[Rfam]
RNA sequence: CAUUCGGUAGCGCUGAAUGGCCAAGAUGGCCAACGGGGGAACCAAAAGCGGCCGUAAGCUUGUGUGAGAGCAAGCCGAAGGUCCGCACGGGGUGAAUCCUGCGCGAGUCUCGGCCUCGCGGGGGAAGGGCGACUCUCACCGCCCGAAUCCGACAGCUAACCUCGUAAGCGUAUGGAGAGAGACAAC
Numbered sequence: 001c002a003u004u005c006g007g008u009a010g011c012g013c014u015g016a017a018u019g020g021c022c023a024a025g026a027u028g029g030c031c032a033a034c035g036g037g038g039g040a041a042c043c044a045a046a047a048g049c050g051g052c053c054g055u056a057a058g059c060u061u062g063u064g065u066g067a068g069a070g071c072a073a074g075c076c077g078a079a080g081g082u083c084c085g086c087a088c089g090g091g092g093u094g095a096a097u098c099c100u101g102c103g104c105g106a107g108u109c110u111c112g113g114c115c116u117c118g119c120g121g122g123g124g125a126a127g128g129g130c131g132a133c134u135c136u137c138a139c140c141g142c143c144c145g146a147a148u149c150c151g152a153c154a155g156c157u158a159a160c161c162u163c164g165u166a167a168g169c170g171u172a173u174g175g176a177g178a179g180a181g182a183c184a185a186c
Stems, first nucleotide, its partner, number of pairs: 011170004018032005033165006043089001090150003098124003127144004
c-di-AMP riboswitch aptamer (ydaO/yuaA leader): a 186-nucleotide RNA from Cohnella thailandensis. The organism belongs to Cohnella, within Bacteria.